[Rfam]
RNA: Ruegeria cis2 sRNA
Organism: Citreicella sp. C3M06
RNA sequence: AUUGGAGUUGCGCGGGUUGUAAUCGACAAAGGCAAAGCCGCGUGACUGGUCGAUGGUGUGAAACAGCGGGUUCCAGCUGAACAGGGCAAUCAUCUUGGGCGGCAGGGUGUUGGCGACGAACAUCUUGCCCGAGGCGAUCAUGUUGGCCCGCUG
Dot-bracket structure: .(((...((...(((.......)))...))..))).((((((........)).))))......(((((.((((.....))))...((.(.(((......(((((((((.(((....)))..)))))).)))........))).).)).)))))